[Rfam]
RNA sequence: UAUGUACUUCAGGGCAGGGUGUAAUUCCCGAUCGGUGGUAAACCCCACGAGUCAAUAAUUGGCAGGAACCGGAUAAUUCCCGGUGGCGACAGUAUAGUCUGGAUGGAAGAAGUUUUUU
Number, nucleotide and partner (000 for none) at each position: 001u000002a000003u000004g115005u000006a113007c112008u111009u110010c109011a000012g000013g000014g000015c000016a000017g029018g028019g027020u000021g000022u000023a000024a000025u000026u000027c019028c018029c017030g000031a098032u097033c088034g087035g048036u047037g046038g045039u000040a000041a000042a000043c086044c085045c038046c037047a036048c035049g000050a000051g000052u000053c062054a000055a000056u000057a000058a000059u000060u000061g000062g053063c000064a000065g000066g000067a000068a084069c083070c082071g081072g080073a000074u000075a000076a000077u000078u000079c000080c072081c071082g070083g069084u068085g044086g043087c034088g033089a000090c101091a100092g099093u000094a000095u000096a000097g032098u031099c092100u091101g090102g000103a000104u000105g000106g000107a000108a000109g010110a009111a008112g007113u006114u000115u004116u000117u000118u000
FMN riboswitch aptamer (RFN element): a 118-nucleotide sequence from Erysipelothrix larvae.
The family's consensus secondary structure is taken from published work.
Lineage of the source: Bacteria > Bacillati > Erysipelotrichia > Erysipelotrichaceae > Erysipelothrix.
A search with the family's covariance model found it, with a score of 93 bits.